Record summary
The record is a 122-nucleotide RNA sequence from Castor canadensis, which matches "Small nucleolar RNA SNORA32" in Rfam.

[Rfam]
RNA sequence: UGAACGCGCCCGAUCUCGUCUAGAAUGCAGUUUCUCAUUUGCUGUGGACAUGACCAUAAAGAAAUUUCCCACUAGGUUUUCUAUAUGCUACUUUGUUAGCAAUCAACCUACUGGGGACACUA
Numbered sequence: 001u002g003a004a005c006g007c008g009c010c011c012g013a014u015c016u017c018g019u020c021u022a023g024a025a026u027g028c029a030g031u032u033u034c035u036c037a038u039u040u041g042c043u044g045u046g047g048a049c050a051u052g053a054c055c056a057u058a059a060a061g062a063a064a065u066u067u068c069c070c071a072c073u074a075g076g077u078u079u080u081c082u083a084u085a086u087g088c089u090a091c092u093u094u095g096u097u098a099g100c101a102a103u104c105a106a107c108c109u110a111c112u113g114g115g116g117a118c119a120c121u122a
Stems, first nucleotide, its partner, number of pairs: 005052002010047003027042004068115004075108004086101003
Rfam's curators write: ACA32 is a member of the H/ACA class of snoRNA that guide the sites of modification of uridines to pseudouridines.